[Rfam]
RNA sequence: AACAUGCUCCUUAGAUCCAUCUUUGUGGAUAUCUCUUGUGCUGAGUUCUGCUUGUUAACUUUGGUUUUCAGUAGUUCCAGUCAAGUGGUGUUCAGCAACUUUUGGGUUGUACAGUCAGAGAUGCUUGAGUCAUUGGCAUGUGAGAGCAAUAUACCUGCACACUAGCCUUUUGUGUUCUGAUAUAAAUGACUGUAUACUUGCAUGUCGUUUCUCACUAUCAGAACCUGGCUGGUAGCAGACAUA
Dot-bracket structure: .(((((((.(((((...((((((((((((((...(((..((((.(..((((..(..(((....))).)..))))..))))).)))...))))))((((((....)))))).....)))))))).))))).....))))))).............((((...(.((((........(((((((....(((..(((........)))......))).)))))))....)))).)..)))).....
Small nucleolar RNA SNORA53: a 243-nucleotide RNA from Sphenodon punctatus. Rfam describes the family as follows. The snoRNA ACA53 belongs to the H/ACA family of pseudouridylation guide snoRNAs. The family's RNA type in Rfam is H/ACA-box small nucleolar RNA. Rfam links the family to the GO terms nucleolus and RNA processing. The base pairs follow the family's consensus structure, which was predicted with RNAalifold.